Shown here is a 59-nucleotide RNA from Glycine max, a member of the family "Plastid-ccsA-ndhD-1 3UTR RNA".
[Rfam]
RNA sequence: AAAUGAUUGAGAACCCCUUGAAUCAAGUACUGUAGUAGUGAUUCAAGGGGUUCUCAAAA
Numbered sequence: 001a002a003a004u005g006a007u008u009g010a011g012a013a014c015c016c017c018u019u020g021a022a023u024c025a026a027g028u029a030c031u032g033u034a035g036u037a038g039u040g041a042u043u044c045a046a047g048g049g050g051u052u053c054u055c056a057a058a059a
Stems, first nucleotide, its partner, number of pairs: 007057018025036001
Pairs were carried over by alignment from the consensus structure, which was predicted with LocARNA. Clan: Plastid-ccsA_ndhD 3UTR RNA clan. The literature on the family includes a 1987 paper in Cell by Stern and Gruissem, "Control of plastid gene expression: 3' inverted repeats act as mRNA processing and stabilizing elements, but do not terminate transcription". Lineage of the source: Eukaryota > Streptophytina > Spermatophyta > rosids > Glycine subgen. Soja. Rfam's curators write: Plastid-ccsA-ndhD-1 is a non-coding RNA (ncRNA) recognised in plastids. It was found in the three prime untranslated region (3UTR) of ccsA and ndhD genes, its 3UTR location suggests a role in transcript maturation.